[Rfam]
RNA sequence: CAGCAGACAGUUAUCCCUUUCUAGUCUGGCAUGUGGGACUUUAGAGGGAGUCAGUCUGCAACAGUAAGUGGUGAGUUGCUUUGUCCAGCGUCAGUAUUUUGAUGGUGGCUUUAGACUUGCCAGAUAACU
Numbered sequence: 001c002a003g004c005a006g007a008c009a010g011u012u013a014u015c016c017c018u019u020u021c022u023a024g025u026c027u028g029g030c031a032u033g034u035g036g037g038a039c040u041u042u043a044g045a046g047g048g049a050g051u052c053a054g055u056c057u058g059c060a061a062c063a064g065u066a067a068g069u070g071g072u073g074a075g076u077u078g079c080u081u082u083g084u085c086c087a088g089c090g091u092c093a094g095u096a097u098u099u100u101g102a103u104g105g106u107g108g109c110u111u112u113a114g115a116c117u118u119g120c121c122a123g124a125u126a127a128c129u
Stems, first nucleotide, its partner, number of pairs: 003059006020045005025038003069122007077115001083109003089104006
A member of the RNA family "Small nucleolar RNA SNORA56" from Myotis lucifugus, 129 nucleotides long. ACA56 is a member of the H/ACA class of snoRNA that guide the sites of modification of uridines to pseudouridines. It is annotated as an H/ACA-box small nucleolar RNA. Taxonomically the source falls in Myotis (Eukaryota, Deuterostomia, Tetrapoda, Boreoeutheria). The sequence is in the family's curated seed alignment.